Source information: This 77-nucleotide sequence from Falsiroseomonas stagni belongs to the Rfam family "Makes More Granules Regulator RNA (mmgR)".

RNA sequence: UUUCUCUGCCGUGUGACUGGCGUUUCCUCCCUAAACUCGGGCGGCACCCUUGGGUGCUGCCCGUUUUUUUGUAUCCC
Numbered sequence: 001u002u003u004c005u006c007u008g009c010c011g012u013g014u015g016a017c018u019g020g021c022g023u024u025u026c027c028u029c030c031c032u033a034a035a036c037u038c039g040g041g042c043g044g045c046a047c048c049c050u051u052g053g054g055u056g057c058u059g060c061c062c063g064u065u066u067u068u069u070u071g072u073a074u075c076c077c
Stems, first nucleotide, its partner, number of pairs: 008021003039062009
It is annotated as a small RNA. From the family's description: SuhB later renamed mmgR (makes more granules regulator) was a putative non-coding RNA found multiple times in the Agrobacterium tumefaciens genome and related alpha-proteobacteria. The source organism's lineage runs through Bacteria, Pseudomonadati, Pseudomonadota, Acetobacterales and Falsiroseomonas stagni.